Shown here is a 67-nucleotide RNA from Bombyx mori, a member of the family "mir-2774 microRNA precursor family". It scores 69 bits against the family's covariance model. Its family is annotated with RISC complex and miRNA-mediated post-transcriptional gene silencing in the Gene Ontology. On this family, see Liu et al., BMC Genomics 2010: "MicroRNAs of Bombyx mori identified by Solexa sequencing". Lineage of the source: Eukaryota > Protostomia > Neoptera > Neolepidoptera > Bombyx. Pairs were carried over by alignment from the consensus structure, which was predicted with RNAalifold.
RNA sequence: UGAACAUUUGGAUCGUCGGUCUACCGAGCAAUUUCGACCACUCGGUGGAAGAUUUUCCCUCUGUCUU
Numbered sequence: 001u002g003a004a005c006a007u008u009u010g011g012a013u014c015g016u017c018g019g020u021c022u023a024c025c026g027a028g029c030a031a032u033u034u035c036g037a038c039c040a041c042u043c044g045g046u047g048g049a050a051g052a053u054u055u056u057c058c059c060u061c062u063g064u065c066u067u
Stems, first nucleotide, its partner, number of pairs: 004064003010058003015053003020049009
Dot-bracket structure: ...(((...(((..(((..(((((((((............))))))))).)))..)))...)))...